[Rfam]
RNA sequence: GCAUAAUUUAAUCAGAAUGUUCGUAUAAUGUCGGUAAUAUGGAUCGAUCGUUUCUACCGGGCCGCCGAUAACGGCCCGACUACGAACAAUAAACAAACUCAG
Numbered sequence: 001g002c003a004u005a006a007u008u009u010a011a012u013c014a015g016a017a018u019g020u021u022c023g024u025a026u027a028a029u030g031u032c033g034g035u036a037a038u039a040u041g042g043a044u045c046g047a048u049c050g051u052u053u054c055u056a057c058c059g060g061g062c063c064g065c066c067g068a069u070a071a072c073g074g075c076c077c078g079a080c081u082a083c084g085a086a087c088a089a090u091a092a093a094c095a096a097a098c099u100c101a102g
Base pairs, nucleotide, nucleotide: 018088019087020086021085022084023083024082025081030048031047032046033045034044035043058078059077060076061075062074063073064072

This 102-nucleotide RNA from Salisediminibacterium halotolerans belongs to the Rfam family "Purine riboswitch aptamer".